RNA sequence: UAAAAGGGUGUCUGUUGUGAUUAGCAUUGUUGUGAAAGAUCAACUUGGACCCAAUGGAAUCAUUAUCAAGAGAUUCCGGAUGCACAAUUUUUUGCAUAUCGGAUUUACCAGUGGCCAAUGUUCUUGGUACCCCA
Numbered sequence: 001u002a003a004a005a006g007g008g009u010g011u012c013u014g015u016u017g018u019g020a021u022u023a024g025c026a027u028u029g030u031u032g033u034g035a036a037a038g039a040u041c042a043a044c045u046u047g048g049a050c051c052c053a054a055u056g057g058a059a060u061c062a063u064u065a066u067c068a069a070g071a072g073a074u075u076c077c078g079g080a081u082g083c084a085c086a087a088u089u090u091u092u093u094g095c096a097u098a099u100c101g102g103a104u105u106u107a108c109c110a111g112u113g114g115c116c117a118a119u120g121u122u123c124u125u126g127g128u129a130c131c132c133c134a
Base pairs, nucleotide, nucleotide: 008083009082010081011080012079013026014025015024016023017022027054028053029052032050033049036046037045038044055078056077057076058075059074060073061072101132102131104129107128108127109126110125111124113123114122116120
The family of this 134-nucleotide RNA from Anabarilius grahami is "U11 spliceosomal RNA". The family's consensus secondary structure is taken from published work. The source organism's lineage runs through Eukaryota, Euteleostomi, Clupeocephala, Cyprinoidei and Anabarilius. By type it is a spliceosomal small nuclear RNA. A search with the family's covariance model found it, with a score of 70 bits.